Shown here is a 161-nucleotide sequence from Populus tomentosa, a member of the family "MIR2912 microRNA precursor family". The source organism's lineage runs through Eukaryota, Streptophyta, Malpighiales, Salicaceae and Populus. Rfam links the family to the GO terms RISC complex and miRNA-mediated post-transcriptional gene silencing. A search with the family's covariance model found it, with a score of 125 bits. The family's consensus secondary structure was predicted with RNAalifold. Rfam 15.1 lists 15,051 matches to the family in 15 species.

[Rfam]
RNA sequence: UCUAGAACUCGAGAUAUGGGUUGAACACUGAACAGUGUCUGGGCUGCAGGAUAGAUUCGGACUUCUCUUUUGUUGCUAUAAUUUGGACUUGAAAACAGCUUUUUAAAAUCUUAGACUCCAUAUGAAAGUUGUAGGCCUAUGUCUUACCAAAUCUUUCUAAU
Numbered sequence: 001u002c003u004a005g006a007a008c009u010c011g012a013g014a015u016a017u018g019g020g021u022u023g024a025a026c027a028c029u030g031a032a033c034a035g036u037g038u039c040u041g042g043g044c045u046g047c048a049g050g051a052u053a054g055a056u057u058c059g060g061a062c063u064u065c066u067c068u069u070u071u072g073u074u075g076c077u078a079u080a081a082u083u084u085g086g087a088c089u090u091g092a093a094a095a096c097a098g099c100u101u102u103u104u105a106a107a108a109u110c111u112u113a114g115a116c117u118c119c120a121u122a123u124g125a126a127a128g129u130u131g132u133a134g135g136c137c138u139a140u141g142u143c144u145u146a147c148c149a150a151a152u153c154u155u156u157c158u159a160a161u
Stems, first nucleotide, its partner, number of pairs: 003159005009151001011145010021134003025130001027129003035123003041119003045115001048112005055104001059100002062098002068092002072088003